[Rfam]
RNA sequence: UAUAAAGUUACGCUUAAUUUUCAGCAUAUGCUGAGAAGCGGGGGAACCAUUUUUUUGGGGCGAAUCAAUUCAUAUUGUAGGGAACCAUCUUUCCCGAGCCCGACAGCUAACCUCGUCAGUAGUAGAUGGGUCAAAU
Numbered sequence: 001u002a003u004a005a006a007g008u009u010a011c012g013c014u015u016a017a018u019u020u021u022c023a024g025c026a027u028a029u030g031c032u033g034a035g036a037a038g039c040g041g042g043g044g045a046a047c048c049a050u051u052u053u054u055u056u057g058g059g060g061c062g063a064a065u066c067a068a069u070u071c072a073u074a075u076u077g078u079a080g081g082g083a084a085c086c087a088u089c090u091u092u093c094c095c096g097a098g099c100c101c102g103a104c105a106g107c108u109a110a111c112c113u114c115g116u117c118a119g120u121a122g123u124a125g126a127u128g129g130g131u132c133a134a135a136u
Base pairs, nucleotide, nucleotide: 012120013119014118018037019036020035021034022033023032024031025030038116039115040114041113042112043111048057049056058101059100060099066077067076068075069074080095081094082093083092
This 136-nucleotide sequence from Paenibacillus crassostreae belongs to the Rfam family "c-di-AMP riboswitch aptamer (ydaO/yuaA leader)". A search with the family's covariance model found it, with a score of 85 bits. Gene Ontology terms of the family: regulation of gene expression and cyclic-di-AMP binding.